[Rfam]
RNA sequence: CGGACCGCGAGGGGAGAACCGGCCCGUCCGGUGCCGAAGGAGCAACCGCCCCGGAAACUCUCAGGCCCAUGGACCUUUGCGGACAC
Numbered sequence: 001c002g003g004a005c006c007g008c009g010a011g012g013g014g015a016g017a018a019c020c021g022g023c024c025c026g027u028c029c030g031g032u033g034c035c036g037a038a039g040g041a042g043c044a045a046c047c048g049c050c051c052c053g054g055a056a057a058c059u060c061u062c063a064g065g066c067c068c069a070u071g072g073a074c075c076u077u078u079g080c081g082g083a084c085a086c
Base pairs, nucleotide, nucleotide: 006081007080008079009078010077011076012075013074019031020030021029022028033066034065035064036062037061040060041059042058046054047053
Dot-bracket structure: .....((((((((.....((((.....)))).(((((..(((...((.....))...))))).))).......)))))))).....

Shown here is an 86-nucleotide RNA sequence from Salipiger thiooxidans, a member of the family "Glycine riboswitch aptamer". Pairs were carried over by alignment from the consensus structure.